The family of this 326-nucleotide RNA sequence from Jacana jacana is "7SK RNA". Pairs were carried over by alignment from the consensus structure, which is taken from published work. Rfam 15.1 lists 49,373 matches to the family in 668 species. 7SK was discovered as an abundant small nuclear RNA in the mid-70s but a possible function has only recently been suggested. Two independent studies have found that 7SK RNA binds the CDK9/cyclin T complex (known as elongation factor P-TEFb). P-TEFb activates transcription by phosphorylating the C-terminal domain of RNA polymerase II. This process is negatively regulated by the 7SK RNP. The secondary structure of 7SK RNA shown here was proposed by Wasserman and Steitz on the basis of chemical modification and enzymatic cleavage experiments. The family is grouped with related families in Rfam's "7SK clan". NCBI's taxonomy places the organism under Eukaryota, Gnathostomata, Theropoda, Jacanidae, Jacana. The family's RNA type in Rfam is non-coding RNA gene.
RNA sequence: GAAUGUGAGGGUGAUCUGGCUGUGAUAUCUGUCACCCUACUGAUUGUCAGAGUGGAUUUGGCUGAUCUAGCUGGCUAGGCGGGUGUUCCCUUCCUCCCUCACCAUUCUGUGUGUGUCCCUCCCAAAGCUGCAUGUUUGGUUGAAGAGGAAACUCAAGAGAAACAUGCUGGUCAUUGGUCAGGGGUAUACAGUAGCUGCAGUCCCCUACCUGAACCUCCAAACAUGCUCAAGAUCCAUUUGUAAGAAAAUGUAGGGUAGUCAAGCUUCCAAGACUGCAGAUACAGUCCUCCAAGGGAGGCACUGCAUGGGGCAGUCUGCCAUUGUUU
Numbered sequence: 001g002a003a004u005g006u007g008a009g010g011g012u013g014a015u016c017u018g019g020c021u022g023u024g025a026u027a028u029c030u031g032u033c034a035c036c037c038u039a040c041u042g043a044u045u046g047u048c049a050g051a052g053u054g055g056a057u058u059u060g061g062c063u064g065a066u067c068u069a070g071c072u073g074g075c076u077a078g079g080c081g082g083g084u085g086u087u088c089c090c091u092u093c094c095u096c097c098c099u100c101a102c103c104a105u106u107c108u109g110u111g112u113g114u115g116u117c118c119c120u121c122c123c124a125a126a127g128c129u130g131c132a133u134g135u136u137u138g139g140u141u142g143a144a145g146a147g148g149a150a151a152c153u154c155a156a157g158a159g160a161a162a163c164a165u166g167c168u169g170g171u172c173a174u175u176g177g178u179c180a181g182g183g184g185u186a187u188a189c190a191g192u193a194g195c196u197g198c199a200g201u202c203c204c205c206u207a208c209c210u211g212a213a214c215c216u217c218c219a220a221a222c223a224u225g226c227u228c229a230a231g232a233u234c235c236a237u238u239u240g241u242a243a244g245a246a247a248a249u250g251u252a253g254g255g256u257a258g259u260c261a262a263g264c265u266u267c268c269a270a271g272a273c274u275g276c277a278g279a280u281a282c283a284g285u286c287c288u289c290c291a292a293g294g295g296a297g298g299c300a301c302u303g304c305a306u307g308g309g310g311c312a313g314u315c316u317g318c319c320a321u322u323g324u325u326u
Stems, first nucleotide, its partner, number of pairs: 001108001003106001005102007013093002018090002024087010035074002037070003042067004046062003119159003122139004127135002140156003147152001194264003201257001203255006216245002221241003225237001291326003295321001297319003300314005